Rfam assigns this 281-nucleotide RNA from Exophiala aquamarina to the family "Fungal signal recognition particle RNA".

[Rfam]
RNA sequence: UGGCUGUCAUGGUCAUAAUUAAAGAAGGCUGCUUUCUAUCGAGCAUUUUGGGGCGUCGCUUCACACUCCACACUUGUUCAUCGCGUGCCUCACUCGGAAUUUCGGGUCGUUCUUCGUACUCGUGUGUGUAAACCACGAUCGCUACGGAACGCUAAGCAAUGGAAAUGACCCUUGAGGGAAGCAAUUCUGCAGAGACAUUUCCACCCGGAGUUGGCGGCGUGAGACUACACCGUGGCAAGAUAUGCGAAGUCUCGGGCUUGUCUAGUGGUCGACUUUUUUUU
Numbered sequence: 001u002g003g004c005u006g007u008c009a010u011g012g013u014c015a016u017a018a019u020u021a022a023a024g025a026a027g028g029c030u031g032c033u034u035u036c037u038a039u040c041g042a043g044c045a046u047u048u049u050g051g052g053g054c055g056u057c058g059c060u061u062c063a064c065a066c067u068c069c070a071c072a073c074u075u076g077u078u079c080a081u082c083g084c085g086u087g088c089c090u091c092a093c094u095c096g097g098a099a100u101u102u103c104g105g106g107u108c109g110u111u112c113u114u115c116g117u118a119c120u121c122g123u124g125u126g127u128g129u130a131a132a133c134c135a136c137g138a139u140c141g142c143u144a145c146g147g148a149a150c151g152c153u154a155a156g157c158a159a160u161g162g163a164a165a166u167g168a169c170c171c172u173u174g175a176g177g178g179a180a181g182c183a184a185u186u187c188u189g190c191a192g193a194g195a196c197a198u199u200u201c202c203a204c205c206c207g208g209a210g211u212u213g214g215c216g217g218c219g220u221g222a223g224a225c226u227a228c229a230c231c232g233u234g235g236c237a238a239g240a241u242a243u244g245c246g247a248a249g250u251c252u253c254g255g256g257c258u259u260g261u262c263u264a265g266u267g268g269u270c271g272a273c274u275u276u277u278u279u280u281u
Base pairs, nucleotide, nucleotide: 001015002014003013004012018279021276022275023274024273027270028269029268030267031266032265033264040260041259047256048255049254050253051252052251053250054249056247057246058245059244075237076236077235079234080233082232083231085230086229087228089223090222091221092220093219094217095216096215098212099211100210101209102208103207104206105205106204108151111149113147115146116145117144118143120138121137122136123135124134126133127132152156160203161202162201163200164199165198166197171194172193173192178187179186180185
The organism belongs to Exophiala aquamarina, within Eukaryota. A reference for the family is Wild et al. (2002), "Towards the structure of the mammalian signal recognition particle", Curr Opin Struct Biol. The match comes from Rfam's covariance-model search (144 bits).